The record is a 122-nucleotide RNA sequence from Trifolium subterraneum, which matches "mir-395 microRNA precursor family" in Rfam. The match comes from Rfam's covariance-model search (64 bits). Rfam links the family to the GO terms RISC complex and miRNA-mediated post-transcriptional gene silencing. Rfam describes the family as follows. mir-395 was identified in both Arabidopsis thaliana and Oryza sativa computationally and was later experimentally verified. mir-395 is thought to target mRNAs coding for ATP sulphurylases. The mature sequence is excised from the 3' arm of the hairpin. On this family, see Jones-Rhoades and Bartel, Mol Cell 2004: "Computational Identification of Plant MicroRNAs and Their Targets, Including a Stress-Induced miRNA".
RNA sequence: UUGUCUCUUAGAGUUCCUUUGAACGCUUCAUGCAUGAAACUAUAUUAUCUAUUUGGUCUAAAAUCCAUUAGAAAAGAUAGUCCUUUCUUCAAUGAAGUGUUUGGGGGAACUCUUAGGUUCAA
Numbered sequence: 001u002u003g004u005c006u007c008u009u010a011g012a013g014u015u016c017c018u019u020u021g022a023a024c025g026c027u028u029c030a031u032g033c034a035u036g037a038a039a040c041u042a043u044a045u046u047a048u049c050u051a052u053u054u055g056g057u058c059u060a061a062a063a064u065c066c067a068u069u070a071g072a073a074a075a076g077a078u079a080g081u082c083c084u085u086u087c088u089u090c091a092a093u094g095a096a097g098u099g100u101u102u103g104g105g106g107g108a109a110c111u112c113u114u115a116g117g118u119u120c121a122a
Base pairs, nucleotide, nucleotide: 006117007116008115011112012111013110014109015108016107017106018105019104020103022102023101024099025098026097027096028095029094030093031092034089